Rfam assigns this 407-nucleotide RNA from Peptococcus niger to the family "permuted transfer-messenger RNA". Bacterial tmRNA, also known as 10Sa RNA or SsrA, is named for its dual tRNA and mRNA-like properties. Its role is to liberate the mRNA from a stalled ribosome. To accomplish this part of the tmRNA is used as a reading frame that ends in a translation stop signal. The broken mRNA is replaced in the ribosome by the tmRNA and translation of the tmRNA leads to addition of a proteolysis tag to the incomplete protein enabling recognition by a protease.
[Rfam]
RNA sequence: GCUCGUCUGGGCAGGCGUCGAUCCUUGCUCGGAUGUAGCAGCGCCACCGCCACCACCACAUGCUGUCAGUGCAAAAGCCGCCAUCAAUAACAUUGCUACAAUACUUUUUUUCUUCAUCGAGAUCCCCCUUAAUCAUUUUGCAAUAAAACACAUUCGCUUUAGUUCGUUAACAUGAUAACAUGACAGCGGUAGUAUUGCAAGCCCCUUUCUGCUUUUCGUCAAAACCGUCAGCCCGGGCAUUUGAAGGGCCCCGGUAAAUAUGCUAUAAUUGGUAUCUACCCUCGGGGGUGUACUGGUUUCGACGGGGGAUGGCAAGACCGCAACUUGCGUGCCGAGUUUGACGUGGGCUCGCAAAACACGUCAAAACAAUAACUGCUAAAAACAAUAAUUUAGCUUUCGCAGCUUAA
Numbered sequence: 001g002c003u004c005g006u007c008u009g010g011g012c013a014g015g016c017g018u019c020g021a022u023c024c025u026u027g028c029u030c031g032g033a034u035g036u037a038g039c040a041g042c043g044c045c046a047c048c049g050c051c052a053c054c055a056c057c058a059c060a061u062g063c064u065g066u067c068a069g070u071g072c073a074a075a076a077g078c079c080g081c082c083a084u085c086a087a088u089a090a091c092a093u094u095g096c097u098a099c100a101a102u103a104c105u106u107u108u109u110u111u112c113u114u115c116a117u118c119g120a121g122a123u124c125c126c127c128c129u130u131a132a133u134c135a136u137u138u139u140g141c142a143a144u145a146a147a148a149c150a151c152a153u154u155c156g157c158u159u160u161a162g163u164u165c166g167u168u169a170a171c172a173u174g175a176u177a178a179c180a181u182g183a184c185a186g187c188g189g190u191a192g193u194a195u196u197g198c199a200a201g202c203c204c205c206u207u208u209c210u211g212c213u214u215u216u217c218g219u220c221a222a223a224a225c226c227g228u229c230a231g232c233c234c235g236g237g238c239a240u241u242u243g244a245a246g247g248g249c250c251c252c253g254g255u256a257a258a259u260a261u262g263c264u265a266u267a268a269u270u271g272g273u274a275u276c277u278a279c280c281c282u283c284g285g286g287g288g289u290g291u292a293c294u295g296g297u298u299u300c301g302a303c304g305g306g307g308g309a310u311g312g313c314a315a316g317a318c319c320g321c322a323a324c325u326u327g328c329g330u331g332c333c334g335a336g337u338u339u340g341a342c343g344u345g346g347g348c349u350c351g352c353a354a355a356a357c358a359c360g361u362c363a364a365a366a367c368a369a370u371a372a373c374u375g376c377u378a379a380a381a382a383c384a385a386u387a388a389u390u391u392a393g394c395u396u397u398c399g400c401a402g403c404u405u406a407a
Base pairs, nucleotide, nucleotide: 001332002331004329005328015321016320017319025309026308029305030304031303035047036046038044039043048290049289050288051287053285054284333351334350335349336348337347338346